[Rfam]
RNA sequence: CGACGCGGUGGGGCACGACAUCAACUACUUAAAGAACCAAGAGAAAUAACCCAACCCCACCCCACCUGAUCCCGGUAGUCAGCUGCGGGAAAGGCUGGUCACUCACACGGGUGAGAUUCACGAACUGAGCUGGAUUUUGGCCGGGUUGGCAGGCAUAUGCUCACGCUGACCAACACCCAGACAUGAGACGGCCCCCGCCGGGACGGCAAUCCCGAGCGAGGACCUGACCACCAAGGAAGAAGCAACCUUCCCG
Numbered sequence: 001c002g003a004c005g006c007g008g009u010g011g012g013g014c015a016c017g018a019c020a021u022c023a024a025c026u027a028c029u030u031a032a033a034g035a036a037c038c039a040a041g042a043g044a045a046a047u048a049a050c051c052c053a054a055c056c057c058c059a060c061c062c063c064a065c066c067u068g069a070u071c072c073c074g075g076u077a078g079u080c081a082g083c084u085g086c087g088g089g090a091a092a093g094g095c096u097g098g099u100c101a102c103u104c105a106c107a108c109g110g111g112u113g114a115g116a117u118u119c120a121c122g123a124a125c126u127g128a129g130c131u132g133g134a135u136u137u138u139g140g141c142c143g144g145g146u147u148g149g150c151a152g153g154c155a156u157a158u159g160c161u162c163a164c165g166c167u168g169a170c171c172a173a174c175a176c177c178c179a180g181a182c183a184u185g186a187g188a189c190g191g192c193c194c195c196c197g198c199c200g201g202g203a204c205g206g207c208a209a210u211c212c213c214g215a216g217c218g219a220g221g222a223c224c225u226g227a228c229c230a231c232c233a234a235g236g237a238a239g240a241a242g243c244a245a246c247c248u249u250c251c252c253g
Stems, first nucleotide, its partner, number of pairs: 007232004016085002099114006129164001131163003190224002193221002196218003200213004235251005
Shown here is a 253-nucleotide RNA from Streptomyces sp. SID7982, a member of the family "Streptomyces sRNA 4677". Located in the intergenic region between anti-sigma factor SCO4677 gene and a putative regulatory protein gene SCO4676. scr4677 expression requires the SCO4677 activity and scr4677 sRNA itself seem to affect the levels of the SCO4676-associated transcripts. By type it is a small RNA. A reference for the family is Hindra et al. (2014), "Complex intra-operonic dynamics mediated by a small RNA in Streptomyces coelicolor", PLoS One.